[Rfam]
RNA sequence: CCCCUGAUCACGUCGGGGUAAUGGCGUGAUAUCCUCCCUGUUGGACUGGCCGGGCUUUCAGCCCGGCCUUUUUU
Numbered sequence: 001c002c003c004c005u006g007a008u009c010a011c012g013u014c015g016g017g018g019u020a021a022u023g024g025c026g027u028g029a030u031a032u033c034c035u036c037c038c039u040g041u042u043g044g045a046c047u048g049g050c051c052g053g054g055c056u057u058u059c060a061g062c063c064c065g066g067c068c069u070u071u072u073u074u
Base pairs, nucleotide, nucleotide: 008029009028010027011026012025013024014023048068049067050066051065052064053063054062055061
The record is a 74-nucleotide RNA sequence from Albidovulum aquaemixtae, which matches "Singlet oxygen resistance RNA X" in Rfam. From the family's description: SorX (RSs2461)like SorY is a singlet oxygen induced sRNA that counteracts oxidative stress by targeting mRNA for a transporter in Rhodobacter. It also has an impact on resistance against organic hydroperoxides. It targets SD sequence of potA mRNA via an aSD sequence. The aSD sequence and some neighbouring nucleotides are identical to the one of SorY (targets takP mRNA). A reference for the family is Peng et al. (2016), "Regulation of a polyamine transporter by the conserved 3' UTR-derived sRNA SorX confers resistance to singlet oxygen and organic hydroperoxides in Rhodobacter sphaeroides", RNA Biol. Rfam 15.1 lists 528 matches to the family in 356 species. The source organism's lineage runs through Bacteria, Alphaproteobacteria, Rhodobacterales, Paracoccaceae and Albidovulum. The match comes from Rfam's covariance-model search (74 bits). Rfam classes the family as a small RNA.